[Rfam]
RNA sequence: GGAGCGGUGAUGACACCAACAUGCCAUCUGAAUGCCAUGUGCUGAAAAACAGAGGCUGUUUCUGAGCUG
Dot-bracket structure: ....((((.........................................................))))

A member of the RNA family "Small nucleolar RNA SNORD95" from Marmota monax, 69 nucleotides long. The family's consensus secondary structure was predicted with PFOLD. The family's RNA type in Rfam is C/D-box small nucleolar RNA. On this family, see Vitali et al., Nucleic Acids Res 2003: "Identification of 13 novel human modification guide RNAs". Gene Ontology terms of the family: RNA processing and nucleolus. The source organism's lineage runs through Eukaryota, Tetrapoda, Sciuromorpha, Marmotini and Marmota.